[Rfam]
RNA sequence: GCUGGUGUAGCUCAGUCGGUAGAGCAGCUGAUUUGUAAUCAGCCGGUCGCAAGUUCGAAUCUUGUCACCAGCU
Numbered sequence: 001g002c003u004g005g006u007g008u009a010g011c012u013c014a015g016u017c018g019g020u021a022g023a024g025c026a027g028c029u030g031a032u033u034u035g036u037a038a039u040c041a042g043c044c045g046g047u048c049g050c051a052a053g054u055u056c057g058a059a060u061c062u063u064g065u066c067a068c069c070a071g072c073u
Stems, first nucleotide, its partner, number of pairs: 001072007010025004027043005049065005
Shown here is a 73-nucleotide RNA from Synechococcales cyanobacterium M55_K2018_004, a member of the family "tRNA".
Rfam classes the family as a transfer RNA.
About the family: Transfer RNA (tRNA) molecules are approximately 80 nucleotides in length.